Source information:
Shown here is a 172-nucleotide sequence from Calothrix sp. NIES-4101, a member of the family "Group II catalytic intron D1-D4-3". Group II introns are found in rRNA, tRNA and mRNA of organelles in fungi, plants and protists, and also in mRNA in bacteria. The organism belongs to Calothrix, within Bacteria. The literature on the family includes a 2001 paper in Trends Genet by Bonen and Vogel, "The ins and outs of group II introns".
[Rfam]
Nucleotides: 172
Stems, first nucleotide, its partner, number of pairs: 001016006030170002036164001040159006046150005062145006073137003076133007085113004091106004
Number, partner (000 for none) and nucleotide at each position: 001016u002015c003014a004013g005012c006011g007000g008000u009000g010000a011006c012005g013004c014003u015002g016001a017000a018000u019000c020000u021000g022000a023000a024000g025000g026000a027000a028000g029000g030170u031169g032000g033000a034000g035000g036164c037000a038000a039000a040159u041158c042157u043156c044155c045154g046150a047149a048148c049147c050146g051000a052000a053000g054000a055000a056000c057000a058000u059000g060000a061000a062145g063144c064143g065142c066141a067140u068000a069000a070000g071000a072000g073137g074136c075135g076133u077132g078131g079130g080129c081128a082127a083000a084000u085113g086112a087111c088110u089000g090000a091106g092105u093104g094103a095000g096000c097000g098000u099000u100000u101000c102000a103094u104093c105092a106091c107000g108000a109000a110088a111087g112086u113085c114000u115000g116000a117000c118000c119000a120000u121000c122000a123000a124000g125000a126000c127082u128081u129080g130079c131078c132077u133076a134000u135075c136074g137073u138000a139000c140067a141066u142065g143064c144063g145062u146050c147049g148048g149047u150046u151000g152000c153000a154045u155044g156043g157042a158041g159040a160000g161000a162000a163000a164036g165000g166000g167000g168000a169031u170030a171000g172000g